RNA sequence: CUCUACAACUCCUGCAUUGUACACACUGUGUGGAAAACACAGCCAUGCACAGCGCAUACAAUGUGGAUGCUGUGGCG
Numbered sequence: 001c002u003c004u005a006c007a008a009c010u011c012c013u014g015c016a017u018u019g020u021a022c023a024c025a026c027u028g029u030g031u032g033g034a035a036a037a038c039a040c041a042g043c044c045a046u047g048c049a050c051a052g053c054g055c056a057u058a059c060a061a062u063g064u065g066g067a068u069g070c071u072g073u074g075g076c077g
Stems, first nucleotide, its partner, number of pairs: 012066002015063007024054001026052006
RNA: mir-460 microRNA precursor family